[Rfam]
RNA sequence: CACAGAGUAGAAACUGUUUCGUGAAGUGUUCUUUGAACGGGGAGUUGUCAAAGAAACGAAAGGAUUACCUGCGGUUACAGUUUCGCAUCCCGCUGUU
Numbered sequence: 001c002a003c004a005g006a007g008u009a010g011a012a013a014c015u016g017u018u019u020c021g022u023g024a025a026g027u028g029u030u031c032u033u034u035g036a037a038c039g040g041g042g043a044g045u046u047g048u049c050a051a052a053g054a055a056a057c058g059a060a061a062g063g064a065u066u067a068c069c070u071g072c073g074g075u076u077a078c079a080g081u082u083u084c085g086c087a088u089c090c091c092g093c094u095g096u097u
Stems, first nucleotide, its partner, number of pairs: 002096004010084008020073003026057002029055008040090003044086001061070003
The record is a 97-nucleotide RNA from Ruminococcus bovis, which matches "THF (Tetrahydrofolate) riboswitch aptamer" in Rfam. The literature on the family includes a 2010 paper in Chem Biol by Ames et al., "A eubacterial riboswitch class that senses the coenzyme tetrahydrofolate". The family has 101 seed sequences and 747 matches in Rfam 15.1. Gene Ontology term of the family: tetrahydrofolate metabolic process. Tetrahydrofolate (THF) riboswitch was first reported for Ames et al. as an RNA motif in 5' untranslated (5'-UTR)regions of folate transport and biosynthesis genes in Firmicutes genomes.